[Rfam]
This 407-nucleotide RNA sequence from Clostridium sp. CAG:389 belongs to the Rfam family "Bacterial RNase P class A".
The base pairs follow the family's consensus structure, which is taken from published work.
Its Rfam clan is "RNaseP clan".
It scores 296 bits against the family's covariance model.
RNA sequence: AGAGUAAAUUGAAUAGUCGCUGGUAACUUCCGAAAGGAACUACGAGAGGAAAGUCCGGGCUCCAUAGAGCAAUGAUGCUAGAUAACGUCUAGUAGGGGUGACCCUAAGGAAAGUGCAACAGAAAAUAACCGCCUCUUUAAUAGUUUGGCUAUGCCAUUCUUAUUAUGUUCGAGGGAGAAAUCCUGAUGUUCGCUAAGAGGUAAGGAUGAAAAGGCGAGGUAAGAGCUCACCGGUUCUAUGGUGACAUAGAAUGCUGUGUAAACCCCAUCUGGAGCAACACCUAACAAAGAAGAUUAAGCCUGCUCGGCACCUUCUUGACUUGCGUGGCUUGAGACAUAUAGCAAUAUAUGCCCUAGAUAAAUGACUAUUUUUGAAGACAGAACCCGGCUUACAGAUUUACUCUUUUU
Numbered sequence: 001a002g003a004g005u006a007a008a009u010u011g012a013a014u015a016g017u018c019g020c021u022g023g024u025a026a027c028u029u030c031c032g033a034a035a036g037g038a039a040c041u042a043c044g045a046g047a048g049g050a051a052a053g054u055c056c057g058g059g060c061u062c063c064a065u066a067g068a069g070c071a072a073u074g075a076u077g078c079u080a081g082a083u084a085a086c087g088u089c090u091a092g093u094a095g096g097g098g099u100g101a102c103c104c105u106a107a108g109g110a111a112a113g114u115g116c117a118a119c120a121g122a123a124a125a126u127a128a129c130c131g132c133c134u135c136u137u138u139a140a141u142a143g144u145u146u147g148g149c150u151a152u153g154c155c156a157u158u159c160u161u162a163u164u165a166u167g168u169u170c171g172a173g174g175g176a177g178a179a180a181u182c183c184u185g186a187u188g189u190u191c192g193c194u195a196a197g198a199g200g201u202a203a204g205g206a207u208g209a210a211a212a213g214g215c216g217a218g219g220u221a222a223g224a225g226c227u228c229a230c231c232g233g234u235u236c237u238a239u240g241g242u243g244a245c246a247u248a249g250a251a252u253g254c255u256g257u258g259u260a261a262a263c264c265c266c267a268u269c270u271g272g273a274g275c276a277a278c279a280c281c282u283a284a285c286a287a288a289g290a291a292g293a294u295u296a297a298g299c300c301u302g303c304u305c306g307g308c309a310c311c312u313u314c315u316u317g318a319c320u321u322g323c324g325u326g327g328c329u330u331g332a333g334a335c336a337u338a339u340a341g342c343a344a345u346a347u348a349u350g351c352c353c354u355a356g357a358u359a360a361a362u363g364a365c366u367a368u369u370u371u372u373g374a375a376g377a378c379a380g381a382a383c384c385c386g387g388c389u390u391a392c393a394g395a396u397u398u399a400c401u402c403u404u405u406u407u
Base pairs, nucleotide, nucleotide: 001403002402003401004400005399006398007397008396009395010394011392012369013368014367015366016365017364018363020046021045023043024042025041028038051390052389053388055387056386057385058384059383060274061273062272063271067305068304069303070302074269075268076267077266078092079091080090081089082088093107094105095104096103097102108265109264113263114262115259116258117257129205130204131201132200133199134198135197136196137195213231214230216228217227218226232254233252234251235250236249237248238247239246240245278326279325280324281322287316288315289314290313291312292311298308299307300306333352335350336349337348338347339346340345